The family of this 121-nucleotide RNA sequence from Glycine max is "MIR1520 microRNA precursor family".

RNA sequence: UUCUUAUUGGAUGAUGACUGUCACGUGUCAUGUUUUAAUUGGAUGUCAACUCCAUGAAAGAUGAAAUGCAUUGUUGUUAACGGUCAACGUCCAAUUGUGGCCUGGGGGACCAACAUUGCAC
Numbered sequence: 001u002u003c004u005u006a007u008u009g010g011a012u013g014a015u016g017a018c019u020g021u022c023a024c025g026u027g028u029c030a031u032g033u034u035u036u037a038a039u040u041g042g043a044u045g046u047c048a049a050c051u052c053c054a055u056g057a058a059a060g061a062u063g064a065a066a067u068g069c070a071u072u073g074u075u076g077u078u079a080a081c082g083g084u085c086a087a088c089g090u091c092c093a094a095u096u097g098u099g100g101c102c103u104g105g106g107g108g109a110c111c112a113a114c115a116u117u118g119c120a121c
Stems, first nucleotide, its partner, number of pairs: 020110003026105001029104002033100002036097001038095003
NCBI's taxonomy places the organism under Eukaryota, Euphyllophyta, fabids, Papilionoideae, Glycine subgen. Soja. Clan: MIR1520 microRNA precursor clan. The base pairs follow the family's consensus structure, which was predicted with RNAalifold. The match comes from Rfam's covariance-model search (67 bits).